RNA: Bacterial RNase P class A
RNA sequence: GUGAUGGGUCGCCCCACCGCGGCGCCUUACGCAAGAAUGGCGACGAGGAAAGUCCGGGCAACGCAGAGCACCCUGCUUCCUAACGGGAAGGACUGGUAAGCGUAAAGUAAGCCAGGACAGCCAGUGCCACAGAAAACUACCGCCAGGCGGUGAAGUUGUGAAAGGUGAAGUUGUGAAUUUCACAAUCUCACAAAUUCUCAAUUUCACCUUUGGUAAGGGUGAAAAGGUGCGGUAAGAGCGCACCAGCGGCCGGGCAACCGCGUCGGCUGGGUAAACCUCAGGGGUUGAAAGACCAAAUAAGCUGGUACGUGGGCCUUCGGGCCUGCACCGGGCGGCUCGUCCGGCGCCAGCGGGUAGGUUGAUGGAGCCUUUUCGCGAGAACUGGCCUAGAUAAAUGGUGGGGCCGCGGCAACGCGGACAAAACCCGGCUUAUAGACUCAUCACCCAC
Numbered sequence: 001g002u003g004a005u006g007g008g009u010c011g012c013c014c015c016a017c018c019g020c021g022g023c024g025c026c027u028u029a030c031g032c033a034a035g036a037a038u039g040g041c042g043a044c045g046a047g048g049a050a051a052g053u054c055c056g057g058g059c060a061a062c063g064c065a066g067a068g069c070a071c072c073c074u075g076c077u078u079c080c081u082a083a084c085g086g087g088a089a090g091g092a093c094u095g096g097u098a099a100g101c102g103u104a105a106a107g108u109a110a111g112c113c114a115g116g117a118c119a120g121c122c123a124g125u126g127c128c129a130c131a132g133a134a135a136a137c138u139a140c141c142g143c144c145a146g147g148c149g150g151u152g153a154a155g156u157u158g159u160g161a162a163a164g165g166u167g168a169a170g171u172u173g174u175g176a177a178u179u180u181c182a183c184a185a186u187c188u189c190a191c192a193a194a195u196u197c198u199c200a201a202u203u204u205c206a207c208c209u210u211u212g213g214u215a216a217g218g219g220u221g222a223a224a225a226g227g228u229g230c231g232g233u234a235a236g237a238g239c240g241c242a243c244c245a246g247c248g249g250c251c252g253g254g255c256a257a258c259c260g261c262g263u264c265g266g267c268u269g270g271g272u273a274a275a276c277c278u279c280a281g282g283g284g285u286u287g288a289a290a291g292a293c294c295a296a297a298u299a300a301g302c303u304g305g306u307a308c309g310u311g312g313g314c315c316u317u318c319g320g321g322c323c324u325g326c327a328c329c330g331g332g333c334g335g336c337u338c339g340u341c342c343g344g345c346g347c348c349a350g351c352g353g354g355u356a357g358g359u360u361g362a363u364g365g366a367g368c369c370u371u372u373u374c375g376c377g378a379g380a381a382c383u384g385g386c387c388u389a390g391a392u393a394a395a396u397g398g399u400g401g402g403g404c405c406g407c408g409g410c411a412a413c414g415c416g417g418a419c420a421a422a423a424c425c426c427g428g429c430u431u432a433u434a435g436a437c438u439c440a441u442c443a444c445c446c447a448c
Stems, first nucleotide, its partner, number of pairs: 001444010011433001012403007020045002023042004028037001050431003054428005059287004066338004071283005076090005091118001093115005119278002124276002126272003140218002142214006149207001226244006246267001247265004251260003291360004301351006329343005367386003372381003